[Rfam]
RNA sequence: UGCACACACUCUGGAGAGACCGGCGGCCCUCGCGGGCAGGAACCGGCGCCGAAGGGGCAAGCAGCGCAGCGCACCGUCAUCCGGAACGCCGCGCUUCCAAACUCUCAGGCAAAAGGACAGAGGGGCGCGU
Numbered sequence: 001u002g003c004a005c006a007c008a009c010u011c012u013g014g015a016g017a018g019a020c021c022g023g024c025g026g027c028c029c030u031c032g033c034g035g036g037c038a039g040g041a042a043c044c045g046g047c048g049c050c051g052a053a054g055g056g057g058c059a060a061g062c063a064g065c066g067c068a069g070c071g072c073a074c075c076g077u078c079a080u081c082c083g084g085a086a087c088g089c090c091g092c093g094c095u096u097c098c099a100a101a102c103u104c105u106c107a108g109g110c111a112a113a114a115g116g117a118c119a120g121a122g123g124g125g126c127g128c129g130u
Stems, first nucleotide, its partner, number of pairs: 007124001009122005020046004048110003051106002055104003061097001

Rfam assigns this 130-nucleotide sequence from Luteimonas sp. to the family "Glycine riboswitch aptamer". Rfam's curators write: This family represents the bacterial glycine riboswitch. The pairing is the family consensus, mapped onto this sequence. A search with the family's covariance model found it, with a score of 57 bits.